The family of this 47-nucleotide RNA sequence is "L31-Actinobacteria ribosomal protein leader". The family is grouped with related families in Rfam's "Ribosomal Protein L31 Leader clan". By type it is a cis-regulatory leader.
Nucleotides: 047
Base pairs, nucleotide, nucleotide: 003047004046005045007042008041009040010039015036016035017034018033019032020031021029022028
Number, partner (000 for none) and nucleotide at each position: 001000g002000c003047g004046g005045u006000u007042c008041c009040g010039g011000u012000u013000c014000a015036c016035g017034u018033g019032c020031g021029c022028g023000a024000c025000c026000c027000g028022c029021g030000c031020c032019g033018c034017a035016c036015g037000a038000c039010c040009c041008g042007g043000c044000g045005a046004c047003c